[Rfam]
The record is a 114-nucleotide RNA sequence from Gorilla gorilla, which matches "Y RNA" in Rfam. The base pairs follow the family's consensus structure, which is taken from published work. The family's RNA type in Rfam is non-coding RNA gene.
RNA sequence: GGCUGGUCUGAGGGCAGUGAGUUAUCUCAGUUGAUCAUUCACAGCCAGUUACAGAUUGAACUCCUUGUUCUCUACUCUUUCCCCCUUUUCACUACUGUACUUGACUAGUCUUAA
Numbered sequence: 001g002g003c004u005g006g007u008c009u010g011a012g013g014g015c016a017g018u019g020a021g022u023u024a025u026c027u028c029a030g031u032u033g034a035u036c037a038u039u040c041a042c043a044g045c046c047a048g049u050u051a052c053a054g055a056u057u058g059a060a061c062u063c064c065u066u067g068u069u070c071u072c073u074a075c076u077c078u079u080u081c082c083c084c085c086u087u088u089u090c091a092c093u094a095c096u097g098u099a100c101u102u103g104a105c106u107a108g109u110c111u112u113a114a
Stems, first nucleotide, its partner, number of pairs: 001110008010102002014098002016093006043076002047071002